A member of the RNA family "Fluoride riboswitch aptamer (crcB RNA motif)" from Photobacterium aquimaris, 75 nucleotides long. Rfam links the family to the GO terms response to fluoride and positive regulation of gene expression. It scores 44 bits against the family's covariance model.

[Rfam]
RNA sequence: UUUAUAGCGGGAGAUGAUGUUCCUCCUUUAACCGCCUUAACGAAUUUCUUUAAGGAUAAUGACGUCUGACAACAU
Numbered sequence: 001u002u003u004a005u006a007g008c009g010g011g012a013g014a015u016g017a018u019g020u021u022c023c024u025c026c027u028u029u030a031a032c033c034g035c036c037u038u039a040a041c042g043a044a045u046u047u048c049u050u051u052a053a054g055g056a057u058a059a060u061g062a063c064g065u066c067u068g069a070c071a072a073c074a075u
Stems, first nucleotide, its partner, number of pairs: 010026004016066006035055006